This 75-nucleotide RNA belongs to the Rfam family "Flavo-1 RNA". Rfam 15.1 lists 7,497 matches to the family in 411 species.
RNA sequence: CCCUGAUGGCAGCGGCAUCCUUUUUUGUCUCGUUUUUCAGAGACAAAAAAGAUACAGCGAACAGCAGGAAAUUGC
Numbered sequence: 001c002c003c004u005g006a007u008g009g010c011a012g013c014g015g016c017a018u019c020c021u022u023u024u025u026u027g028u029c030u031c032g033u034u035u036u037u038c039a040g041a042g043a044c045a046a047a048a049a050a051g052a053u054a055c056a057g058c059g060a061a062c063a064g065c066a067g068g069a070a071a072u073u074g075c
Stems, first nucleotide, its partner, number of pairs: 003067003007063002012058002017053003023048008

Overview: Pairs were carried over by alignment from the consensus structure, which is taken from published work. It is annotated as a small RNA.